[Rfam]
RNA sequence: CGGGGAAAGAAGACCCUGUUGAGCUUGACUCUAGUUUGACAUUGUGAAAAGACAUGGAGGGUGUAGCAUAAGUGGGAGCUCCGGCGCCAGUGAAAUACCACUACCUCCAUCGUUUUUUUACUUAAAUAAUGAUAUGGGAUUUGGCCGCAAGGCCAACUUUCUAGUAUCAAGUCCGGGCAUUUGCCUGGGCGACCCACGUUAUUGACAUUGUCAAGUGGGGAGUUUGGCUGGGGCGGCACAUCUGUUAAACAAUAACGCAGGUGUCCUAAGGGGGACUCAGCGAGAACAGAAAUCUCGCGUAGAGUAAAAGGGCAAAAGUCCCCUUGAUUUUGAUUUUCAGUGUGAAUACAAACCAUGAAAGUGUGGCCUAUCGAUCCUUUAGCCGCGGUAGAUUUCCGCCUAGAGGUGCCAGAAAAGUUACCACAGGGAUAACUGGCUUGUGGCAGCCAAGCGUUCAUAGCGACGUUGCUUUUUGAUUCUUCGAUGUCGGCUCUUCCUAUCAUUACGAAGCAGAAUUCGUAAAGCGUUGGAUUGUUCACCCACUAAUAGGGAACGUGAGCUGGGUUUAGACCGUCGUGAGACAGGUUAGUUUUACCCUA
Dot-bracket structure: ..(((.((......((((.(((((((.((((...(((((((..(((((((((((((((((..........(((((..((....))............))))).))))))).))))))))))...(((((((.................................................................))))))).....)))))))....))))..((((.....))).)((((((...........))))))..((....((((((((.((((((.......))))))...))((......))....))))))....(((..((((.......))))..))).(.(....).).))..........(((((...((((.......)))).))))).........)))))..))))))........(.(.(.((((((...((.......))...))))))...)).)..........(((((((((((..(...(((((......))))).....).(((.(.....).))).....)))))..)..)))).).....(((((((....))).))))....))..))).

Shown here is a 599-nucleotide part of an RNA from Absidia repens, a member of the family "Archaeal large subunit ribosomal RNA". Clan: LSU clan.